The record is a 76-nucleotide sequence from Crocodylus porosus, which matches "Mammalian CPEB3 ribozyme" in Rfam. Taxonomically the source falls in Crocodylus (Eukaryota, Craniata, Teleostomi, Amniota).
[Rfam]
RNA sequence: AGUUGCAAGUCUGAGGCCAUAACAGAAGUGCUCAUGGCAUGGCCUGUCGGAUACUAACAGAUCUGUGAAUUCUGCU
Numbered sequence: 001a002g003u004u005g006c007a008a009g010u011c012u013g014a015g016g017c018c019a020u021a022a023c024a025g026a027a028g029u030g031c032u033c034a035u036g037g038c039a040u041g042g043c044c045u046g047u048c049g050g051a052u053a054c055u056a057a058c059a060g061a062u063c064u065g066u067g068a069a070u071u072c073u074g075c076u
Base pairs, nucleotide, nucleotide: 015044016043017042018041021076023074024073025072026071027070028040029039030038048065049064050063051062052061

The base pairs follow the family's consensus structure, which is taken from published work.